[Rfam]
RNA sequence: CCUGGUCAGUGAUGACUCUUGUUAAAUGGUGACUGUUGGAUGAAUCCUGCGGAUAUGGGGCUGAGACCAGAC
Number, nucleotide and partner (000 for none) at each position: 001c000002c070003u069004g068005g067006u000007c000008a000009g000010u000011g000012a000013u000014g000015a000016c000017u000018c000019u000020u000021g000022u000023u000024a000025a000026a000027u000028g000029g000030u000031g000032a000033c000034u000035g000036u000037u000038g000039g000040a000041u000042g000043a000044a000045u000046c000047c000048u000049g000050c000051g000052g000053a000054u000055a000056u000057g000058g000059g000060g000061c000062u000063g000064a000065g000066a000067c005068c004069a003070g002071a000072c000
Notes:
Shown here is a 72-nucleotide sequence from Pelusios castaneus, a member of the family "Small nucleolar RNA SNORD99". The base pairs follow the family's consensus structure, which was predicted with RNAalifold. Rfam classes the family as a C/D-box small nucleolar RNA. Rfam links the family to the GO terms nucleolus and RNA processing.